Annotation:
TPP riboswitch aptamer (THI element): a 106-nucleotide RNA from Methylobacterium sp. GXS13. Lineage of the source: Bacteria > Pseudomonadota > Alphaproteobacteria > Methylobacteriaceae > Methylobacterium. A search with the family's covariance model found it, with a score of 68 bits. The family's consensus secondary structure is taken from published work.
RNA sequence: AACCGUUCCGAGGGGGGCCCUGUAGUGGGCUGAGAUUGGGCACGCUGCCCUGACCCUUGAACCUGAUCCGGCUCAUACCGGCGGAGGGACGGGAACCUGCGGCUGC
Numbered sequence: 001a002a003c004c005g006u007u008c009c010g011a012g013g014g015g016g017g018c019c020c021u022g023u024a025g026u027g028g029g030c031u032g033a034g035a036u037u038g039g040g041c042a043c044g045c046u047g048c049c050c051u052g053a054c055c056c057u058u059g060a061a062c063c064u065g066a067u068c069c070g071g072c073u074c075a076u077a078c079c080g081g082c083g084g085a086g087g088g089a090c091g092g093g094a095a096c097c098u099g100c101g102g103c104u105g106c
Base pairs, nucleotide, nucleotide: 006094007093008092009091010090011057012056013055014054016051017030018029019028020027038050039049040048041047062087063086064085068081069080070079071078